[Rfam]
RNA sequence: ACCUUCUUUUUCCAAAGCGCCAUGCCAAAACCAGCGGUUCUAAGUUUUAGAGCUUAGUUCUGUUGGUCAUGCUAGUAUGGUAUGUUUUAAAGAAGGGAGAGCAAAAAUGCAGCAUCGGAAAUGAGUCCAGGAGGAACCUCUUUCCUAAUGUUCAGUGUUCUAGGGCUCAAGAUUCUGUUACACAU
Numbered sequence: 001a002c003c004u005u006c007u008u009u010u011u012c013c014a015a016a017g018c019g020c021c022a023u024g025c026c027a028a029a030a031c032c033a034g035c036g037g038u039u040c041u042a043a044g045u046u047u048u049a050g051a052g053c054u055u056a057g058u059u060c061u062g063u064u065g066g067u068c069a070u071g072c073u074a075g076u077a078u079g080g081u082a083u084g085u086u087u088u089a090a091a092g093a094a095g096g097g098a099g100a101g102c103a104a105a106a107a108u109g110c111a112g113c114a115u116c117g118g119a120a121a122u123g124a125g126u127c128c129a130g131g132a133g134g135a136a137c138c139u140c141u142u143u144c145c146u147a148a149u150g151u152u153c154a155g156u157g158u159u160c161u162a163g164g165g166c167u168c169a170a171g172a173u174u175c176u177g178u179u180a181c182a183c184a185u
Stems, first nucleotide, its partner, number of pairs: 020080002023077003027073001030070001033067001036061002040057007106179002110177003114173001129158001131156001134153003
RNA: Small nucleolar RNA SNORA81